RNA sequence: CUGCACACCAGUAGACCUUAUCUGGUUGUUCUAAUAGCCAGGUGAGGGGGAUGGUGCAUGCUACAGCAACCUGGGGCUGCUGCAGGGCAUGCCCAGCCUGGAUGUGGCUGACUGAACUGCAAUGCUCCCACAUAU
Numbered sequence: 001c002u003g004c005a006c007a008c009c010a011g012u013a014g015a016c017c018u019u020a021u022c023u024g025g026u027u028g029u030u031c032u033a034a035u036a037g038c039c040a041g042g043u044g045a046g047g048g049g050g051a052u053g054g055u056g057c058a059u060g061c062u063a064c065a066g067c068a069a070c071c072u073g074g075g076g077c078u079g080c081u082g083c084a085g086g087g088c089a090u091g092c093c094c095a096g097c098c099u100g101g102a103u104g105u106g107g108c109u110g111a112c113u114g115a116a117c118u119g120c121a122a123u124g125c126u127c128c129c130a131c132a133u134a135u
Stems, first nucleotide, its partner, number of pairs: 003061003008056001016047009073128004078124001081121003094110004
Rfam assigns this 135-nucleotide RNA sequence from Acanthisitta chloris to the family "Small nucleolar RNA SNORA58". The literature on the family includes a 2001 paper in EMBO J by Huttenhofer et al., "RNomics: an experimental approach that identifies 201 candidates for novel, small, non-messenger RNAs in mouse". It scores 76 bits against the family's covariance model. Gene Ontology terms of the family: nucleolus and RNA processing. Rfam 15.1 lists 471 matches to the family in 320 species. Its Rfam clan is "SNORA44 clan". ACA52 is a member of the H/ACA class of snoRNA that guide the sites of modification of uridines to pseudouridines. Pairs were carried over by alignment from the consensus structure, which was predicted with PFOLD.